[Rfam]
RNA sequence: UGGUGAGGUAGAGGUCGCGGUAUUUAGGAGUAGUUUGGCGGAGGCUUUCGAGACAGCCCGUGAAACCGAAUGAAAGGAAAUACUGCCGAAGUCUGUAUGUCUCUCUCGAGCAUGCGGGCUGGGGCCGUUCCCGAAAGGGACGGAACUGUCACAUGUGUACUACCUAGUACAGAUGUGUUGAGCUAUCUUGCAC
Numbered sequence: 001u002g003g004u005g006a007g008g009u010a011g012a013g014g015u016c017g018c019g020g021u022a023u024u025u026a027g028g029a030g031u032a033g034u035u036u037g038g039c040g041g042a043g044g045c046u047u048u049c050g051a052g053a054c055a056g057c058c059c060g061u062g063a064a065a066c067c068g069a070a071u072g073a074a075a076g077g078a079a080a081u082a083c084u085g086c087c088g089a090a091g092u093c094u095g096u097a098u099g100u101c102u103c104u105c106u107c108g109a110g111c112a113u114g115c116g117g118g119c120u121g122g123g124g125c126c127g128u129u130c131c132c133g134a135a136a137g138g139g140a141c142g143g144a145a146c147u148g149u150c151a152c153a154u155g156u157g158u159a160c161u162a163c164c165u166a167g168u169a170c171a172g173a174u175g176u177g178u179u180g181a182g183c184u185a186u187c188u189u190g191c192a193c
Stems, first nucleotide, its partner, number of pairs: 006188006017086009033071006090120011121147002125143007150177005
RNA: Lysine riboswitch aptamer